[Rfam]
RNA sequence: CAAACGGCCCUUUUCAGGGCCACCAAACACACUCAUCAAGGAGUUG
Numbered sequence: 001c002a003a004a005c006g007g008c009c010c011u012u013u014u015c016a017g018g019g020c021c022a023c024c025a026a027a028c029a030c031a032c033u034c035a036u037c038a039a040g041g042a043g044u045u046g
Base pairs, nucleotide, nucleotide: 006021007020008019009018010017011016
Dot-bracket structure: .....((((((....)))))).........................